Notes
Gammaprotebacteria rimP leader: a 94-nucleotide sequence from Paraphotobacterium marinum.
RNA sequence: UGUAUUUAAUAUGAUAUAUAUGUAAAGAUUAAAAAAUCCCCGAUAUGGGGGUUUUUUUUUGGUUAAAUGUAAUUGGGCUUUAAGCCCUUUUUUU
Numbered sequence: 001u002g003u004a005u006u007u008a009a010u011a012u013g014a015u016a017u018a019u020a021u022g023u024a025a026a027g028a029u030u031a032a033a034a035a036a037u038c039c040c041c042g043a044u045a046u047g048g049g050g051g052u053u054u055u056u057u058u059u060u061g062g063u064u065a066a067a068u069g070u071a072a073u074u075g076g077g078c079u080u081u082a083a084g085c086c087c088u089u090u091u092u093u094u
Stems, first nucleotide, its partner, number of pairs: 034054009075087004
NCBI's taxonomy places the organism under Bacteria, Pseudomonadati, Vibrionales, Vibrionaceae, Paraphotobacterium. On this family, see Naville and Gautheret, Genome Biol 2010: "Premature terminator analysis sheds light on a hidden world of bacterial transcriptional attenuation". The family's consensus secondary structure is taken from published work. It scores 49 bits against the family's covariance model.